[Rfam]
RNA: L31-Actinobacteria ribosomal protein leader
RNA sequence: CUGGUUCCGGUUCACGUCGCUGCGCCCGCGCAGCCCUGACGACCCGGCGACC
Numbered sequence: 001c002u003g004g005u006u007c008c009g010g011u012u013c014a015c016g017u018c019g020c021u022g023c024g025c026c027c028g029c030g031c032a033g034c035c036c037u038g039a040c041g042a043c044c045c046g047g048c049g050a051c052c
Base pairs, nucleotide, nucleotide: 003052004051005050007047008046009045010044015041016040017039018038019034020033021032022031023030024029